[Rfam]
RNA sequence: UCUUUCUUUGAUACGAAUGCCUUCUAUUCACUGCACCAUUCUGUUAAUCAAUGAAUGAUUGGAGGGGAAAAGAAUGCUAGAAUAAAGCUUAGUCAUUCGAAAUACGUCCUCAUACUAAAUAUGCGCCAUUUUUUGUUAAAAAAAGGCAUAAUUGGAUUCUGCGUUUUCGAUAUAUUA
Numbered sequence: 001u002c003u004u005u006c007u008u009u010g011a012u013a014c015g016a017a018u019g020c021c022u023u024c025u026a027u028u029c030a031c032u033g034c035a036c037c038a039u040u041c042u043g044u045u046a047a048u049c050a051a052u053g054a055a056u057g058a059u060u061g062g063a064g065g066g067g068a069a070a071a072g073a074a075u076g077c078u079a080g081a082a083u084a085a086a087g088c089u090u091a092g093u094c095a096u097u098c099g100a101a102a103u104a105c106g107u108c109c110u111c112a113u114a115c116u117a118a119a120u121a122u123g124c125g126c127c128a129u130u131u132u133u134u135g136u137u138a139a140a141a142a143a144a145g146g147c148a149u150a151a152u153u154g155g156a157u158u159c160u161g162c163g164u165u166u167u168c169g170a171u172a173u174a175u176u177a
Stems, first nucleotide, its partner, number of pairs: 019077002022074002031064002034061002037057005097170004104164003115155003120150005130139002
Shown here is a 177-nucleotide sequence from Hemisphaericaspora subhashii, a member of the family "Small nucleolar RNA snR8". It is annotated as an H/ACA-box small nucleolar RNA. On this family, see Parker et al., Mol Cell Biol 1988: "Genetic analysis of small nuclear RNAs in Saccharomyces cerevisiae: viable sextuple mutant". The base pairs follow the family's consensus structure, which was predicted with WAR.